[Rfam]
RNA sequence: UUGAAGCUCCAUCUAUAAAUGGAUAAGACUUAGGUCUUAGUGUAUACGAGUUGUUGAAGGAGCAAUACCAACCCUCUUGAUAAAACAAGAAAUACAGUAUUGCUCCUUC
Numbered sequence: 001u002u003g004a005a006g007c008u009c010c011a012u013c014u015a016u017a018a019a020u021g022g023a024u025a026a027g028a029c030u031u032a033g034g035u036c037u038u039a040g041u042g043u044a045u046a047c048g049a050g051u052u053g054u055u056g057a058a059g060g061a062g063c064a065a066u067a068c069c070a071a072c073c074c075u076c077u078u079g080a081u082a083a084a085a086c087a088a089g090a091a092a093u094a095c096a097g098u099a100u101u102g103c104u105c106c107u108u109c
Base pairs, nucleotide, nucleotide: 008023009022010021011020012019056109057108058107059106060105061104062103063102064101065100066099067098068097075090076089077088078087

A member of the RNA family "Plastid-psbA-1 3UTR RNA" from Protea cynaroides, 109 nucleotides long.
By type it is a cis-regulatory element.
The base pairs follow the family's consensus structure, which was predicted with LocARNA.
The literature on the family includes a 2023 paper in Plant Commun by Richter et al., "Retrograde signaling in plants: A critical review focusing on the GUN pathway and beyond".
The organism belongs to Protea, within Eukaryota.